[Rfam]
A member of the RNA family "Xanthine riboswitch aptamer (NMT1 RNA)" from Vibrio rumoiensis, 53 nucleotides long.
Pairs were carried over by alignment from the consensus structure, which is taken from published work.
Rfam links the family to the GO term purine nucleobase binding.
Nucleotides: 053
Base pairs, nucleotide, nucleotide: 005049006048007047008046009045010044015038018040019039021036022035023034024033
Number, partner (000 for none) and nucleotide at each position: 001000u002000c003000u004000g005049u006048g007047a008046g009045u010044a011000g012000a013000a014000g015038c016000g017000g018040u019039u020000a021036g022035a023034u024033g025000a026000a027000u028000a029000g030000a031000a032000a033024c034023a035022u036021c037000g038015g039019g040018a041000c042000a043000u044010u045009g046008c047007u048006c049005a050000c051000c052000a053000u